[Rfam]
RNA sequence: GUCCAUCUCGCCUGACACUUGUCUCAAACCUCAUUCGAUGAAGGUGAGCAAAGUCUCAGGUGUGGCGGAUC
Numbered sequence: 001g002u003c004c005a006u007c008u009c010g011c012c013u014g015a016c017a018c019u020u021g022u023c024u025c026a027a028a029c030c031u032c033a034u035u036c037g038a039u040g041a042a043g044g045u046g047a048g049c050a051a052a053g054u055c056u057c058a059g060g061u062g063u064g065g066c067g068g069a070u071c
Stems, first nucleotide, its partner, number of pairs: 002069003006065002009062007017054004023048004029044003

About this RNA
A member of the RNA family "mir-87 microRNA precursor family" from Nippostrongylus brasiliensis, 71 nucleotides long. Its family is annotated with RISC complex and miRNA-mediated post-transcriptional gene silencing in the Gene Ontology. The literature on the family includes a 2007 paper in Genome Res by Stark et al., "Systematic discovery and characterization of fly microRNAs using 12 Drosophila genomes".